[Rfam]
RNA sequence: ACCUUAUUAAGAGCGGCGGAGUGAAUGGGCACGAUGAAACCCGGCAACCUAUUGUGGUGCCAAAUCCCACAGAGAGAUCUGGAAGAUGAGGU
Numbered sequence: 001a002c003c004u005u006a007u008u009a010a011g012a013g014c015g016g017c018g019g020a021g022u023g024a025a026u027g028g029g030c031a032c033g034a035u036g037a038a039a040c041c042c043g044g045c046a047a048c049c050u051a052u053u054g055u056g057g058u059g060c061c062a063a064a065u066c067c068c069a070c071a072g073a074g075a076g077a078u079c080u081g082g083a084a085g086a087u088g089a090g091g092u
Stems, first nucleotide, its partner, number of pairs: 001092008013042001015041002021032003026069004043061004048057002065084001070081004

This 92-nucleotide RNA from Peptoniphilus sp. oral taxon 386 belongs to the Rfam family "SAM riboswitch aptamer (S box leader)".
Lineage of the source: Bacteria > Tissierellia > Tissierellales > Peptoniphilaceae > Peptoniphilus sp. oral taxon 386.
The SAM riboswitch is found upstream of a number of genes which code for proteins involved in methionine or cysteine biosynthesis in Gram-positive bacteria.